[Rfam]
Annotation: Group II catalytic intron D1-D4-7: a 152-nucleotide sequence from Candidatus Contendibacter odensensis. A search with the family's covariance model found it, with a score of 114 bits. The pairing is the family consensus, mapped onto this sequence. Rfam describes the family as follows. Group II introns are found in rRNA, tRNA and mRNA of organelles in fungi, plants and protists, and also in mRNA in bacteria. Gene Ontology term of the family: Group II intron splicing.
RNA sequence: CCUGUCUUUCUCUGGACAGUAGCCUACCGUCACAUGCGGUCUUGGCAACGAGACGGUAUGAAGCUGGCGGGACAAUGCAACCCAUCCUCGAAAGGGGUCAAGCUGAAUCUGUGAGGACAAAGCGAAUCUGCAAGCAUAAUGCGGAAGGGAGC
Number, nucleotide and partner (000 for none) at each position: 001c000002c019003u018004g017005u016006c015007u014008u000009u000010c000011u000012c000013u000014g007015g006016a005017c004018a003019g002020u000021a000022g000023c000024c000025u000026a000027c000028c069029g068030u067031c066032a065033c060034a059035u058036g057037c056038g000039g054040u053041c052042u051043u050044g049045g000046c000047a000048a000049c044050g043051a042052g041053a040054c039055g000056g037057u036058a035059u034060g033061a000062a000063g000064c000065u032066g031067g030068c029069g028070g000071g000072a000073c000074a000075a000076u000077g000078c000079a000080a000081c000082c000083c000084a000085u000086c097087c096088u095089c094090g000091a000092a000093a000094g089095g088096g087097g086098u000099c000100a000101a000102g123103c122104u000105g000106a000107a000108u000109c116110u115111g000112u000113g000114a000115g110116g109117a000118c000119a000120a000121a000122g103123c102124g000125a000126a000127u145128c144129u143130g142131c141132a140133a000134g000135c000136a000137u000138a000139a000140u132141g131142c130143g129144g128145a127146a000147g000148g000149g000150a000151g000152c000